[Rfam]
RNA sequence: CGGGAGGCAGAUACCCGGGCAGUCCCAAGCAGUGCUCUGUCCGUCACCAGUCCUCCCUACAGCAUCCCUGCUCUCUGAUGACCGCUGCGAAUUGAGGGAAAUCGCCUCGGACAGAUACGGAGCAGACAUUC
Numbered sequence: 001c002g003g004g005a006g007g008c009a010g011a012u013a014c015c016c017g018g019g020c021a022g023u024c025c026c027a028a029g030c031a032g033u034g035c036u037c038u039g040u041c042c043g044u045c046a047c048c049a050g051u052c053c054u055c056c057c058u059a060c061a062g063c064a065u066c067c068c069u070g071c072u073c074u075c076u077g078a079u080g081a082c083c084g085c086u087g088c089g090a091a092u093u094g095a096g097g098g099a100a101a102u103c104g105c106c107u108c109g110g111a112c113a114g115a116u117a118c119g120g121a122g123c124a125g126a127c128a129u130u131c
Base pairs, nucleotide, nucleotide: 002057003056004055005054006053007052016043017042018041022037025034068125069124070123071122072121073120074119082110083109084108087105088104089103090102

The record is a 131-nucleotide sequence from Salarias fasciatus, which matches "Small Cajal body specific RNA 8" in Rfam.
The organism belongs to Salarias, within Eukaryota.
Pairs were carried over by alignment from the consensus structure, which is taken from published work.
Its family is annotated with nucleolus, Cajal body and RNA processing in the Gene Ontology.
Rfam's curators write: scaRNAs are a specific class of small nuclear RNAs which localise to the Cajal bodies and guide the modification of RNA polymerase II transcribed spliceosomal RNAs U1, U2, U4, U5 and U12. U92 belong to the H/ACA box class of guide RNAs as it has the predicted hairpin-hinge-hairpin-tail structure, conserved H/ACA-box motifs and is found associated with GAR1.
A search with the family's covariance model found it, with a score of 121 bits.
Rfam classes the family as a small Cajal body RNA.